Description: Shown here is an 84-nucleotide sequence from Glycine max, a member of the family "Small nucleolar RNA R38". Pairs were carried over by alignment from the consensus structure, which was predicted with PFOLD. snoR38 is a C/D box small nucleolar RNA conserved across yeast, human, Arabidopsis and rice. It is encoded in the intron of elongation factor-1 gamma in both pombe and cerevisiae. snoR38 guides the methylation of 2'-O-ribose sites in 28S rRNA. The literature on the family includes a 1995 paper in Trends Biochem Sci by Bachellerie et al., "Antisense snoRNAs: a family of nucleolar RNAs with long complementarities to rRNA". The organism belongs to Glycine subgen. Soja, within Eukaryota. By type it is a C/D-box small nucleolar RNA.
RNA sequence: GUGCUGUGGAUGAUGAGAUUGACAAUUUUACAGUUAUCCCUGGCUGAUGUAGCAGGUGCUGAAAAUUUGUAAUCUGACACGCAC
Numbered sequence: 001g002u003g004c005u006g007u008g009g010a011u012g013a014u015g016a017g018a019u020u021g022a023c024a025a026u027u028u029u030a031c032a033g034u035u036a037u038c039c040c041u042g043g044c045u046g047a048u049g050u051a052g053c054a055g056g057u058g059c060u061g062a063a064a065a066u067u068u069g070u071a072a073u074c075u076g077a078c079a080c081g082c083a084c
Base pairs, nucleotide, nucleotide: 001084002083003082004081006080007079008078